The family of this 91-nucleotide sequence from Koleobacter methoxysyntrophicus is "c-di-GMP-I riboswitch aptamer".
[Rfam]
RNA sequence: AUCCCGAAAAGGCAAACUUUACCGAAAGGAAAGGACGCAAAGCCAAAGGGCUAAAGGUAGUUAACACUACUAUGCUAGCUUGGCUACCGAA
Numbered sequence: 001a002u003c004c005c006g007a008a009a010a011g012g013c014a015a016a017c018u019u020u021a022c023c024g025a026a027a028g029g030a031a032a033g034g035a036c037g038c039a040a041a042g043c044c045a046a047a048g049g050g051c052u053a054a055a056g057g058u059a060g061u062u063a064a065c066a067c068u069a070c071u072a073u074g075c076u077a078g079c080u081u082g083g084c085u086a087c088c089g090a091a
Stems, first nucleotide, its partner, number of pairs: 012038002017033004022029002041085004046081003049076003057070004
A search with the family's covariance model found it, with a score of 75 bits.